[Rfam]
Rfam assigns this 323-nucleotide RNA from Anser cygnoides to the family "7SK RNA". The match comes from Rfam's covariance-model search (221 bits). The literature on the family includes a 2002 paper in Curr Biol by Blencowe, "Transcription: surprising role for an elusive small nuclear RNA". Taxonomically the source falls in Anser (Eukaryota, Deuterostomia, Craniata, Aves).
RNA sequence: GGAUGUGAGGGCAAUCUGUCUGCGACAUCUGUCACCCCAUUGAUUGCCAGGGUUGAUUCAGCUGAUCUGACUGGCUAGGUGGGUUUCCCCUUCCUUCCUCACCACUCCAUGUGUGUCCCUCCCAAAGCUGCAUGGCCAAUCAAAGAGGACAACUUUCCUCAAUAGAAACAUACUGUUCAGUGGUCAGGGGUAUACAGUAGCUGUGCUCCCCUGCUAGAACCUCCAAACAAGCUCAAGGUCCAUUUGUAGGAGAACAUAAGAUAGUCAAGCUUCCAAAACUGCAGACACAUCCAAGCGAGGCACUGUAUGGGUGGUUAGGCAUU
Numbered sequence: 001g002g003a004u005g006u007g008a009g010g011g012c013a014a015u016c017u018g019u020c021u022g023c024g025a026c027a028u029c030u031g032u033c034a035c036c037c038c039a040u041u042g043a044u045u046g047c048c049a050g051g052g053u054u055g056a057u058u059c060a061g062c063u064g065a066u067c068u069g070a071c072u073g074g075c076u077a078g079g080u081g082g083g084u085u086u087c088c089c090c091u092u093c094c095u096u097c098c099u100c101a102c103c104a105c106u107c108c109a110u111g112u113g114u115g116u117c118c119c120u121c122c123c124a125a126a127g128c129u130g131c132a133u134g135g136c137c138a139a140u141c142a143a144a145g146a147g148g149a150c151a152a153c154u155u156u157c158c159u160c161a162a163u164a165g166a167a168a169c170a171u172a173c174u175g176u177u178c179a180g181u182g183g184u185c186a187g188g189g190g191u192a193u194a195c196a197g198u199a200g201c202u203g204u205g206c207u208c209c210c211c212u213g214c215u216a217g218a219a220c221c222u223c224c225a226a227a228c229a230a231g232c233u234c235a236a237g238g239u240c241c242a243u244u245u246g247u248a249g250g251a252g253a254a255c256a257u258a259a260g261a262u263a264g265u266c267a268a269g270c271u272u273c274c275a276a277a278a279c280u281g282c283a284g285a286c287a288c289a290u291c292c293a294a295g296c297g298a299g300g301c302a303c304u305g306u307a308u309g310g311g312u313g314g315u316u317a318g319g320c321a322u323u
Stems, first nucleotide, its partner, number of pairs: 001108003005102007014092001018090001024087002027084007035074002038069002042067004046062002120166002122135003127131001140162001147158003200270003206264002210260001212258002221252004227247005297322001299320001301318001302315004